Overview: This 113-nucleotide RNA sequence from Kalmanozyma brasiliensis belongs to the Rfam family "Small nucleolar RNA Z13/snr52". Rfam links the family to the GO terms nucleolus and RNA processing. Rfam 15.1 lists 1,203 matches to the family in 866 species. The source organism's lineage runs through Eukaryota, Fungi, Basidiomycota, Ustilaginomycetes and Kalmanozyma brasiliensis. The base pairs follow the family's consensus structure, which was predicted with PFOLD.

RNA sequence: CGACCUUAUGUGAUGAACUAUUUACGGAUGUAAAACUGUCCUUCGGGACAUGUCAUUGUCCGAGAGCGCAAAACCGUGUGGAUCUCUCCGUUGCCUUCCUACUGAUUCUUGCU
Numbered sequence: 001c002g003a004c005c006u007u008a009u010g011u012g013a014u015g016a017a018c019u020a021u022u023u024a025c026g027g028a029u030g031u032a033a034a035a036c037u038g039u040c041c042u043u044c045g046g047g048a049c050a051u052g053u054c055a056u057u058g059u060c061c062g063a064g065a066g067c068g069c070a071a072a073a074c075c076g077u078g079u080g081g082a083u084c085u086c087u088c089c090g091u092u093g094c095c096u097u098c099c100u101a102c103u104g105a106u107u108c109u110u111g112c113u
Stems, first nucleotide, its partner, number of pairs: 004111001025090004